[Rfam]
RNA sequence: CUGACGGUGAAGUCCCAGGUGGGCUCGGACUCCGACAGCAGCUGCUCGCCGAAGUGCUCGCCGUCGGCCAUCACGUCGAGCACGGUGUCGUCGCCGUACUCGCCGCGGCCGAUCUUGUUCACCUUGCCGUGCACGAUCAGGUAGAGCGCGUCGGUCGGCUGGCCGGCCUCCACGAUGACCUCGCCGGCCUGGUACUCGCGCUGCUCGAAGCGCUCCGCCAGGGCCGACAGCACCGACGCGUCGUCGAAGCCGCGCAGCGAGGGGAGUUCGCACAGCUCCUCGGGGAUGACGCGCACGUCGGCGCCGGUGUUGGUGAAGCUGACGCGUCCGUCGCCGACGGCGUAGCUGAGCCGGCGGUUGACCCGGUAGACGCCGCCGGACGCCUCCACCCAGGGCAGCAUGCGCAGCAGCCACCGGGAGGUGAUGCCCUGCAUCUGGGGGACCGACUUGGUCGUCGUGGCGAGGUUGCGCGCCGCCGCCGCGGCGAGGCUGAGCUGCUGGGGCUGA
Number, nucleotide and partner (000 for none) at each position: 001c000002u000003g000004a000005c000006g390007g389008u388009g387010a000011a385012g384013u000014c382015c000016c000017a000018g328019g327020u000021g325022g000023g000024c000025u322026c321027g320028g319029a000030c000031u316032c315033c000034g000035a000036c312037a311038g310039c309040a308041g000042c306043u000044g000045c000046u000047c303048g302049c301050c300051g299052a298053a000054g233055u232056g000057c230058u229059c000060g000061c226062c000063g224064u223065c111066g110067g109068c108069c000070a000071u000072c000073a000074c000075g103076u000077c102078g101079a100080g099081c000082a097083c096084g095085g094086u093087g000088u000089c000090g000091u000092c000093g086094c085095c084096g083097u082098a000099c080100u079101c078102g077103c075104c000105g000106c000107g000108g068109c067110c066111g065112a000113u000114c000115u000116u000117g000118u221119u220120c000121a000122c217123c000124u000125u000126g213127c212128c000129g000130u209131g206132c000133a000134c203135g202136a000137u000138c000139a000140g197141g000142u000143a196144g195145a000146g000147c000148g000149c192150g000151u000152c000153g189154g188155u187156c186157g185158g184159c183160u178161g000162g000163c000164c174165g173166g000167c000168c000169u000170c000171c000172a000173c165174g164175a000176u000177g000178a160179c000180c000181u000182c000183g159184c158185c157186g156187g155188c154189c153190u000191g000192g149193u000194a000195c144196u143197c140198g000199c000200g000201c000202u135203g134204c000205u000206c131207g000208a000209a130210g000211c000212g127213c126214u000215c000216c000217g122218c000219c000220a119221g118222g000223g064224c063225c000226g061227a000228c000229a058230g057231c000232a055233c054234c000235g000236a000237c293238g000239c000240g290241u289242c288243g287244u286245c285246g000247a000248a000249g000250c282251c000252g280253c000254g278255c000256a277257g276258c275259g000260a000261g000262g269263g000264g000265a000266g000267u000268u000269c262270g000271c000272a000273c000274a000275g258276c257277u256278c254279c000280u252281c000282g250283g000284g000285g245286a244287u243288g242289a241290c240291g000292c000293g237294c000295a000296c000297g000298u052299c051300g050301g049302c048303g047304c000305c000306g042307g000308u040309g039310u038311u037312g036313g000314u000315g032316a031317a000318g000319c028320u027321g026322a025323c000324g000325c021326g000327u019328c018329c342330g341331u340332c339333g000334c000335c000336g000337a000338c000339g332340g331341c330342g329343u000344a000345g000346c000347u000348g000349a000350g000351c379352c378353g377354g376355c375356g374357g373358u000359u000360g000361a000362c000363c369364c000365g000366g000367u000368a000369g363370a000371c000372g000373c357374c356375g355376c354377c353378g352379g351380a000381c000382g014383c000384c012385u011386c000387c009388a008389c007390c006391c431392a430393g429394g428395g427396c426397a425398g000399c423400a422401u421402g000403c418404g000405c416406a000407g415408c000409a000410g000411c000412c000413a000414c000415c407416g405417g000418g403419a000420g000421g401422u400423g399424a000425u397426g396427c395428c394429c393430u392431g391432c000433a000434u000435c000436u000437g476438g000439g474440g473441g000442a000443c470444c000445g000446a467447c465448u464449u463450g000451g461452u460453c000454g000455u000456c000457g000458u000459g000460g452461c451462g000463a449464g448465g447466u000467u446468g000469c000470g443471c000472g000473c440474c439475g000476c437477c506478g505479c000480c503481g000482c501483g000484g499485c000486g000487a496488g495489g000490c000491u000492g000493a000494g000495c488496u487497g000498c000499u484500g000501g482502g000503g480504c000505u478506g477507a000
RNA: Saccharopolyspora sRNA 350
Organism: Allonocardiopsis opalescens